[Rfam]
Small nucleolar RNA SNORA33: a 131-nucleotide RNA from Jaculus jaculus. Gene Ontology terms of the family: nucleolus and RNA processing. Lineage of the source: Eukaryota > Chordata > Teleostomi > Mammalia > Jaculus.
RNA sequence: AAACCAACCAAUUAAUCUGCUUACCUGAAUGUGUUUUCCCAGAAAUUUAGAAAAAGUUGGUAAUAGUGAUGCUAUUUAAUGAGUCUUAAGGACAGUGGAGGUCUUUACAGUCCCUCAAAGUGGCUAUAGUA
Numbered sequence: 001a002a003a004c005c006a007a008c009c010a011a012u013u014a015a016u017c018u019g020c021u022u023a024c025c026u027g028a029a030u031g032u033g034u035u036u037u038c039c040c041a042g043a044a045a046u047u048u049a050g051a052a053a054a055a056g057u058u059g060g061u062a063a064u065a066g067u068g069a070u071g072c073u074a075u076u077u078a079a080u081g082a083g084u085c086u087u088a089a090g091g092a093c094a095g096u097g098g099a100g101g102u103c104u105u106u107a108c109a110g111u112c113c114c115u116c117a118a119a120g121u122g123g124c125u126a127u128a129g130u131a
Stems, first nucleotide, its partner, number of pairs: 003061005016043004071124004083111002087107003091103003